Record summary: The family of this 118-nucleotide sequence from Pelotomaculum isophthalicicum is "Molybdenum/Tungsten riboswitch aptamer (Moco RNA motif)". NCBI's taxonomy places the organism under Bacteria, Clostridia, Desulfotomaculaceae, Pelotomaculum, Pelotomaculum isophthalicicum. A search with the family's covariance model found it, with a score of 75 bits. For this family Rfam cites "in molybdenum cofactor and tungsten cofactor metabolism" (Regulski et al., Mol Microbiol, 2008).

RNA sequence: UUUAAUAAUUUUAUCCGAGUCUAACCGCCUGUGGCUACGGCUAUGGCGGCAGACCUUCAGGGUUUAACUGGAAACGGUUAAGCCUCCCGGUAUGGAAAGGAUAGGUUUUUUAAGAAGA
Numbered sequence: 001u002u003u004a005a006u007a008a009u010u011u012u013a014u015c016c017g018a019g020u021c022u023a024a025c026c027g028c029c030u031g032u033g034g035c036u037a038c039g040g041c042u043a044u045g046g047c048g049g050c051a052g053a054c055c056u057u058c059a060g061g062g063u064u065u066a067a068c069u070g071g072a073a074a075c076g077g078u079u080a081a082g083c084c085u086c087c088c089g090g091u092a093u094g095g096a097a098a099g100g101a102u103a104g105g106u107u108u109u110u111u112a113a114g115a116a117g118a
Stems, first nucleotide, its partner, number of pairs: 003112002011104006019054004025049005033042003060085011086095002